[Rfam]
RNA: Group II catalytic intron D1-D4-3
Organism: Parashewanella spongiae
RNA sequence: UUGUUGGCUAACGGCAAGGUCUGAAGGAAGCCAUAGGAAGUGAGAGGUACACAGCGAAAGCGAACCUGAUUCGGCAUAAUAGAAAGGUAAGCGUGCGAAAUAGCGCAACGCCAUAUACUCAGUCAGCUCUAUUGUGUGCUUGAGGGUGGGAUUUCUAACAGGGAGC
Numbered sequence: 001u002u003g004u005u006g007g008c009u010a011a012c013g014g015c016a017a018g019g020u021c022u023g024a025a026g027g028a029a030g031c032c033a034u035a036g037g038a039a040g041u042g043a044g045a046g047g048u049a050c051a052c053a054g055c056g057a058a059a060g061c062g063a064a065c066c067u068g069a070u071u072c073g074g075c076a077u078a079a080u081a082g083a084a085a086g087g088u089a090a091g092c093g094u095g096c097g098a099a100a101u102a103g104c105g106c107a108a109c110g111c112c113a114u115a116u117a118c119u120c121a122g123u124c125a126g127c128u129c130u131a132u133u134g135u136g137u138g139c140u141u142g143a144g145g146g147u148g149g150g151a152u153u154u155c156u157a158a159c160a161g162g163g164a165g166c
Stems, first nucleotide, its partner, number of pairs: 001017006043156005048150001050148003065145003069141001074137003078133006086112003091106004